[Rfam]
RNA sequence: UAUUAAAAAUUUCAUCCAUUUCUACUGUUAAAAAAUUGAUUUUUGUACCUAGCAUGACGUAUACAUGGCGUCACUAUCAGUUUUUAACAGUACAAAUAAAUGAAAUUUUUAACA
Numbered sequence: 001u002a003u004u005a006a007a008a009a010u011u012u013c014a015u016c017c018a019u020u021u022c023u024a025c026u027g028u029u030a031a032a033a034a035a036u037u038g039a040u041u042u043u044u045g046u047a048c049c050u051a052g053c054a055u056g057a058c059g060u061a062u063a064c065a066u067g068g069c070g071u072c073a074c075u076a077u078c079a080g081u082u083u084u085u086a087a088c089a090g091u092a093c094a095a096a097u098a099a100a101u102g103a104a105a106u107u108u109u110u111a112a113c114a
Stems, first nucleotide, its partner, number of pairs: 003112013018097004023092004028087006